Source information
The family of this 600-nucleotide part of an RNA from Elaeis guineensis is "Eukaryotic small subunit ribosomal RNA". A search with the family's covariance model found it, with a score of 1203 bits. The family is grouped with related families in Rfam's "SSU clan". Lineage of the source: Eukaryota > Viridiplantae > Arecales > Cocoseae > Elaeis. For this family Rfam cites "Crystal structure of the ribosome at 5.5 A resolution" (Yusupov et al., Science, 2001).
RNA sequence: AGUCAUAUACUUGUCUCAAAGAUUAAGUUAUGCAUGUGUAAGUAUGAACUAAGUAUGAACUAAUUCAAACUGUGAAAUUGCGUAUGGCUCAUUAAAUCAGUUAUAAUUUAUUUGAUGAUACGUGCUAUUCGGAUAACCAUAAUAAUUCUAGAGCUAAUAAGUAUAAUAAAUCCUGACUUGCAGAAGGGAUGCACUUAUUAGAUAAAAUGUCAGCAUGAGCUCCACAGGUGCUCCGAUGAUUCAUGAUAACUCAACAGAUCGCACAGCCCAUGUGCGGCGAUGCAUGAUUCAAAUUUCUAUCCUAUUAACUUUCGAUGGUAGUAUAGGAGCCUACCAUGGUGUUGAUAGAUGAUAGAGAAUUAGGAUUUGAUUCCAGAGAAGGAGCCUGAAAAAUGGCUACCACAUCUAAGAAAGGCAGCAGGCAUGCAAAUUACCCAAUCCUGACAUAGAGAGGUAGUGACAAUAAAUAAUAAUAUUAGGCUUCUAGACUCUGGUAAUUAGAAUGAGCACAAUAUAAAUUCCUUAAUGAGGAUCCAUUGGAAGCCAAGGCUGGUGCUAGCAGUUGUGGUAAUUCCAGCUCCAAUAGUGUAUAUUUAAGUU
Numbered sequence: 001a002g003u004c005a006u007a008u009a010c011u012u013g014u015c016u017c018a019a020a021g022a023u024u025a026a027g028u029u030a031u032g033c034a035u036g037u038g039u040a041a042g043u044a045u046g047a048a049c050u051a052a053g054u055a056u057g058a059a060c061u062a063a064u065u066c067a068a069a070c071u072g073u074g075a076a077a078u079u080g081c082g083u084a085u086g087g088c089u090c091a092u093u094a095a096a097u098c099a100g101u102u103a104u105a106a107u108u109u110a111u112u113u114g115a116u117g118a119u120a121c122g123u124g125c126u127a128u129u130c131g132g133a134u135a136a137c138c139a140u141a142a143u144a145a146u147u148c149u150a151g152a153g154c155u156a157a158u159a160a161g162u163a164u165a166a167u168a169a170a171u172c173c174u175g176a177c178u179u180g181c182a183g184a185a186g187g188g189a190u191g192c193a194c195u196u197a198u199u200a201g202a203u204a205a206a207a208u209g210u211c212a213g214c215a216u217g218a219g220c221u222c223c224a225c226a227g228g229u230g231c232u233c234c235g236a237u238g239a240u241u242c243a244u245g246a247u248a249a250c251u252c253a254a255c256a257g258a259u260c261g262c263a264c265a266g267c268c269c270a271u272g273u274g275c276g277g278c279g280a281u282g283c284a285u286g287a288u289u290c291a292a293a294u295u296u297c298u299a300u301c302c303u304a305u306u307a308a309c310u311u312u313c314g315a316u317g318g319u320a321g322u323a324u325a326g327g328a329g330c331c332u333a334c335c336a337u338g339g340u341g342u343u344g345a346u347a348g349a350u351g352a353u354a355g356a357g358a359a360u361u362a363g364g365a366u367u368u369g370a371u372u373c374c375a376g377a378g379a380a381g382g383a384g385c386c387u388g389a390a391a392a393a394u395g396g397c398u399a400c401c402a403c404a405u406c407u408a409a410g411a412a413a414g415g416c417a418g419c420a421g422g423c424a425u426g427c428a429a430a431u432u433a434c435c436c437a438a439u440c441c442u443g444a445c446a447u448a449g450a451g452a453g454g455u456a457g458u459g460a461c462a463a464u465a466a467a468u469a470a471u472a473a474u475a476u477u478a479g480g481c482u483u484c485u486a487g488a489c490u491c492u493g494g495u496a497a498u499u500a501g502a503a504u505g506a507g508c509a510c511a512a513u514a515u516a517a518a519u520u521c522c523u524u525a526a527u528g529a530g531g532a533u534c535c536a537u538u539g540g541a542a543g544c545c546a547a548g549g550c551u552g553g554u555g556c557u558a559g560c561a562g563u564u565g566u567g568g569u570a571a572u573u574c575c576a577g578c579u580c581c582a583a584u585a586g587u588g589u590a591u592a593u594u595u596a597a598g599u600u
Stems, first nucleotide, its partner, number of pairs: 001594003005591007014465001016463001020458001021425001027423003031420003036081002041079003048073002088378003099298002103294002107292002113287001115285002128163001130161001137153001140150002170190005177183002195249006209237003217225001219223001259280004264276001267274001302348002308340003315337007353375001355373002357368004381400001383398003403414001405412001431456001433455003439451001441449003471500003474496007482488002507527001509524001511523001537583005550577004559566002